[Rfam]
RNA: Small nucleolar RNA SNORD110
Organism: Jaculus jaculus
RNA sequence: UUGCAGUGAUGACUUGUAAAUCUGUCAAUCCCCUGACUAAUCACUGAUGUCUCCAUGUCUCUGAGCAG
Dot-bracket structure: ((((............................................................))))